A member of the RNA family "Betaproteobacteria toxic small RNA" from Massilia violaceinigra, 64 nucleotides long. Pairs were carried over by alignment from the consensus structure, which was predicted with WAR. Rfam's curators write: Overexpression in amino aid rich medium attenuates growth, suggesting role in repressing amino acid intake and metabolism. The family has 51 seed sequences and 951 matches in Rfam 15.1. The organism belongs to Massilia, within Bacteria.
RNA sequence: UGUCUCCACUAUCUUCCUCCAAGAAAAUAGUUUGAAGCCCGCUUUCAUCAGCGGGCUUUUUUUU
Numbered sequence: 001u002g003u004c005u006c007c008a009c010u011a012u013c014u015u016c017c018u019c020c021a022a023g024a025a026a027a028u029a030g031u032u033u034g035a036a037g038c039c040c041g042c043u044u045u046c047a048u049c050a051g052c053g054g055g056c057u058u059u060u061u062u063u064u
Stems, first nucleotide, its partner, number of pairs: 008031005013023002036057008